[Rfam]
RNA sequence: AAAUGUGAUGAUUUGUUGUCGACCGGGCGGACAUAUUAGUAUCUUAGGUAAGGUAGUUUUACAAUUUAAGUUUCCCUUUCAGUGUACAAAUUUUUUGAAGGGGGGAUGGUAAAACAUCAUUAUCUUAUCUUUGAGAAUUGAUGAUUGGUCACAAGAUAUCUGAUU
Numbered sequence: 001a002a003a004u005g006u007g008a009u010g011a012u013u014u015g016u017u018g019u020c021g022a023c024c025g026g027g028c029g030g031a032c033a034u035a036u037u038a039g040u041a042u043c044u045u046a047g048g049u050a051a052g053g054u055a056g057u058u059u060u061a062c063a064a065u066u067u068a069a070g071u072u073u074c075c076c077u078u079u080c081a082g083u084g085u086a087c088a089a090a091u092u093u094u095u096u097g098a099a100g101g102g103g104g105g106a107u108g109g110u111a112a113a114a115c116a117u118c119a120u121u122a123u124c125u126u127a128u129c130u131u132u133g134a135g136a137a138u139u140g141a142u143g144a145u146u147g148g149u150c151a152c153a154a155g156a157u158a159u160c161u162g163a164u165u
Base pairs, nucleotide, nucleotide: 007160008159009158010157016154017153018152019151021150022149023148024147025146034143035142036141037140038139039138040137042134043133046130047129048128049127050126051125052124053123054122055121056115057114058113060112070107071106072105073104074103075102076101077100078099079098080097